[Rfam]
RNA sequence: AUAUUUAUAUCGCUUAAUUUUUUCACAAAUAAUGUGAGAAGAGCGGGGGACCCAGUAUUUGGGGUGAAUCCUUUUUGUUCUAUAAGGUAGGGUAUGCCCUUAACCCGAACCCAUCAGCUAACCUCGUAAGCGUGGAAGGGGGAUUGG
Numbered sequence: 001a002u003a004u005u006u007a008u009a010u011c012g013c014u015u016a017a018u019u020u021u022u023u024c025a026c027a028a029a030u031a032a033u034g035u036g037a038g039a040a041g042a043g044c045g046g047g048g049g050a051c052c053c054a055g056u057a058u059u060u061g062g063g064g065u066g067a068a069u070c071c072u073u074u075u076u077g078u079u080c081u082a083u084a085a086g087g088u089a090g091g092g093u094a095u096g097c098c099c100u101u102a103a104c105c106c107g108a109a110c111c112c113a114u115c116a117g118c119u120a121a122c123c124u125c126g127u128a129a130g131c132g133u134g135g136a137a138g139g140g141g142g143a144u145u146g147g
Stems, first nucleotide, its partner, number of pairs: 011132004018042010043127006053061002062112003070087004090106004

A member of the RNA family "c-di-AMP riboswitch aptamer (ydaO/yuaA leader)" from Sporanaerobacter acetigenes, 147 nucleotides long. This family represents a conserved RNA structure found upstream of the ydaO and yuaA genes in Bacillus subtilis and related genes in other bacteria. The source organism's lineage runs through Bacteria, Tissierellia, Sporanaerobacteraceae, Sporanaerobacter and Sporanaerobacter acetigenes. It scores 100 bits against the family's covariance model.